[Rfam]
RNA sequence: GUGCCUUAAACUAAUGAGUAAGGAAAAUAUUCAAGCCUUGGUAACGCUUGGCUUACAUGCUAGCAUACCUAGUUGAAAUUUUUGUGGGGGUUCAGGUCGUCCCAUGGACUGCCGCCUACUUUAGUGGCGGUUCUGGUGAAGCGAUCUGCCCG
Numbered sequence: 001g002u003g004c005c006u007u008a009a010a011c012u013a014a015u016g017a018g019u020a021a022g023g024a025a026a027a028u029a030u031u032c033a034a035g036c037c038u039u040g041g042u043a044a045c046g047c048u049u050g051g052c053u054u055a056c057a058u059g060c061u062a063g064c065a066u067a068c069c070u071a072g073u074u075g076a077a078a079u080u081u082u083u084g085u086g087g088g089g090g091u092u093c094a095g096g097u098c099g100u101c102c103c104a105u106g107g108a109c110u111g112c113c114g115c116c117u118a119c120u121u122u123a124g125u126g127g128c129g130g131u132u133c134u135g136g137u138g139a140a141g142c143g144a145u146c147u148g149c150c151c152g
Base pairs, nucleotide, nucleotide: 004023005022006021007020008019033054034053035052036051037050040047055073056072059069088151089150090149091148094147095146096145097144098143099142100141103136106133107132108131109130111128112127113126114125115124

The record is a 152-nucleotide RNA from Dendroctonus ponderosae, which matches "U12 minor spliceosomal RNA" in Rfam. Rfam classes the family as a spliceosomal small nuclear RNA. Lineage of the source: Eukaryota > Pancrustacea > Eumetabola > Coleoptera > Dendroctonus. The family has 62 seed sequences and 2,106 matches in Rfam 15.1. A reference for the family is Tarn and Steitz (1997), "Pre-mRNA splicing: the discovery of a new spliceosome doubles the challenge", Trends Biochem Sci. Its family is annotated with mRNA branch site recognition, pre-mRNA branch point binding and U12 snRNP in the Gene Ontology.